RNA sequence: UAUUCCGGAACGCCGAAUCCUGCCGCCGGAGGCUCGGGACGCGCGAACUUCGACUCGGCAGGGGCGGGGGAACCAGGUAAGUCGCUGCGACCGGUCCGUCAGGUCCGCAGCUUGGGGUGAAGCCGUGCUCAGCACGGCCGGGCUAGCCCACGGUCCGAAUCCGACAGCUCACCUCGCAGGCGUCGUAGAGGACCCUG
Number, nucleotide and partner (000 for none) at each position: 001u000002a000003u000004u000005c000006c000007g000008g000009a000010a000011c182012g181013c180014c179015g000016a000017a000018u063019c062020c061021u060022g059023c058024c057025g056026c000027c000028g000029g000030a000031g000032g000033c000034u000035c000036g000037g000038g000039a000040c000041g000042c000043g000044c000045g000046a000047a000048c000049u000050u000051c000052g000053a000054c000055u000056c025057g024058g023059c022060a021061g020062g019063g018064g177065c176066g175067g174068g173069g172070g000071a000072a000073c000074c114075a113076g112077g111078u110079a000080a000081g000082u000083c000084g000085c000086u000087g000088c000089g000090a000091c000092c000093g000094g000095u000096c000097c000098g000099u000100c000101a000102g000103g000104u000105c000106c000107g000108c000109a000110g078111c077112u076113u075114g074115g162116g161117g160118u000119g000120a000121a000122g000123c137124c136125g135126u134127g000128c000129u000130c000131a000132g000133c000134a126135c125136g124137g123138c000139c000140g156141g155142g154143c153144u000145a000146g000147c000148c000149c000150a000151c000152g000153g143154u142155c141156c140157g000158a000159a000160u117161c116162c115163g000164a000165c000166a000167g000168c000169u000170c000171a000172c069173c068174u067175c066176g065177c064178a000179g014180g013181c012182g011183u000184c000185g000186u000187a000188g000189a000190g000191g000192a000193c000194c000195c000196u000197g000

A member of the RNA family "c-di-AMP riboswitch aptamer (ydaO/yuaA leader)" from Streptacidiphilus fuscans, 197 nucleotides long. NCBI's taxonomy places the organism under Bacteria, Actinomycetota, Kitasatosporales, Streptomycetaceae, Streptacidiphilus. A search with the family's covariance model found it, with a score of 70 bits.